[Rfam]
RNA sequence: CUACGGACUUAGAUAACUGAGCCUUGAAGGAGAAAUCCCUCAAGUGGAAGCUCUCAAACUCAGGGAAACCUAAAUCUGGUGACAGACAUGGCAAUCCUGAGCCAAGCCCGAAAAUUUUAGAUUUGCGAUUUUAGAUUUGGGAUUAGUUUUCAAUCUAAAAUCCAAAACCCAAAAUUGAGGGAAGGUGCAGAGACCCGACGGGAGCUACCCUAACGUAAAGUCGAGGGUAAAGGGAGAGUCCAAUUCUCAAAAUCUGAUUUGGCU
Numbered sequence: 001c002u003a004c005g006g007a008c009u010u011a012g013a014u015a016a017c018u019g020a021g022c023c024u025u026g027a028a029g030g031a032g033a034a035a036u037c038c039c040u041c042a043a044g045u046g047g048a049a050g051c052u053c054u055c056a057a058a059c060u061c062a063g064g065g066a067a068a069c070c071u072a073a074a075u076c077u078g079g080u081g082a083c084a085g086a087c088a089u090g091g092c093a094a095u096c097c098u099g100a101g102c103c104a105a106g107c108c109c110g111a112a113a114a115u116u117u118u119a120g121a122u123u124u125g126c127g128a129u130u131u132u133a134g135a136u137u138u139g140g141g142a143u144u145a146g147u148u149u150u151c152a153a154u155c156u157a158a159a160a161u162c163c164a165a166a167a168c169c170c171a172a173a174a175u176u177g178a179g180g181g182a183a184g185g186u187g188c189a190g191a192g193a194c195c196c197g198a199c200g201g202g203a204g205c206u207a208c209c210c211u212a213a214c215g216u217a218a219a220g221u222c223g224a225g226g227g228u229a230a231a232g233g234g235a236g237a238g239u240c241c242a243a244u245u246c247u248c249a250a251a252a253u254c255u256g257a258u259u260u261g262g263c264u
Base pairs, nucleotide, nucleotide: 005024006023008021009020010019011018012017029038030037049206050205051204052203053202055200060100061099062098063097064096065095069091070090101186102185107180108179113175115173116172117171190241192240193239194238196236208227209226210225211224247262248261249260250259251258